[Rfam]
Nucleotides: 133
Stems, first nucleotide, its partner, number of pairs: 008084005013026004027055002030052001032050007056079004062073001101131004106127003110123001112122004
Number, partner (000 for none) and nucleotide at each position: 001000a002000a003000a004000a005000a006000g007000g008084g009083c010082u011081u012080c013026u014025g015024u016023c017000c018000u019000g020000a021000g022000u023016g024015g025014c026013a027055c028054a029000c030052g031000c032050a033049g034048a035047g036046c037045a038044g039000c040000u041000u042000a043000a044038u045037u046036g047035c048034u049033c050032u051000a052030c053000a054028u055027g056079u057078g058077g059076a060000a061000c062073c063000g064000a065000c066000a067000u068000c069000a070000a071000g072000a073062g074000a075000c076059u077058u078057c079056a080012g081011a082010a083009g084008c085000a086000c087000a088000a089000u090000u091000u092000u093000u094000g095000g096000u097000a098000c099000u100000u101131g102130g103129g104128c105000a106127g107126c108125u109000u110123g111000u112122g113121a114120u115119c116000g117000u118000u119115g120114g121113u122112c123110c124000u125108g126107g127106c128104g129103c130102c131101c132000g133000c